The family of this 205-nucleotide sequence from Conger conger is "Small nucleolar RNA SNORD17". The base pairs follow the family's consensus structure, which was predicted with RNAalifold. The literature on the family includes a 2001 paper in EMBO J by Huttenhofer et al., "RNomics: an experimental approach that identifies 201 candidates for novel, small, non-messenger RNAs in mouse". The source organism's lineage runs through Eukaryota, Gnathostomata, Elopomorpha, Congridae and Conger. Rfam describes the family as follows. The snoRNA HBI-43 belongs to the C/D family of snoRNAs, guiding 2'O-ribose methylation at position U3797 of the 28S rRNA. Pseudouridylation in position U3797 is predicted to be guided by the H/ACA snoRNA ACA48.
RNA sequence: GUGACGUGAUGAACUUGUUUAUCCAUUCUCUGAGUGCUGCUGGCCUGCUCUCCGCAGCGCCCCUGUCUGUUCUGGACCUGGGCGUUUGGCUCCUCCCCCACUGCGAGCAUCCAGUGUUCUACUGGCUGUUCUGUGGCUGGGGGCGUGGCCAGGGCGGGGCUUGUGGGCGUGGCAACCGCAAAGACGAGUGUAAACUCCUGAUCGC
Numbered sequence: 001g002u003g004a005c006g007u008g009a010u011g012a013a014c015u016u017g018u019u020u021a022u023c024c025a026u027u028c029u030c031u032g033a034g035u036g037c038u039g040c041u042g043g044c045c046u047g048c049u050c051u052c053c054g055c056a057g058c059g060c061c062c063c064u065g066u067c068u069g070u071u072c073u074g075g076a077c078c079u080g081g082g083c084g085u086u087u088g089g090c091u092c093c094u095c096c097c098c099c100a101c102u103g104c105g106a107g108c109a110u111c112c113a114g115u116g117u118u119c120u121a122c123u124g125g126c127u128g129u130u131c132u133g134u135g136g137c138u139g140g141g142g143g144c145g146u147g148g149c150c151a152g153g154g155c156g157g158g159g160c161u162u163g164u165g166g167g168c169g170u171g172g173c174a175a176c177c178g179c180a181a182a183g184a185c186g187a188g189u190g191u192a193a194a195c196u197c198c199u200g201a202u203c204g205c
Stems, first nucleotide, its partner, number of pairs: 010204003014200001017197001020194001024190005030183002034179002039173004043168006050159005055153001056086007065077004088150004098140002103134002106130004111125006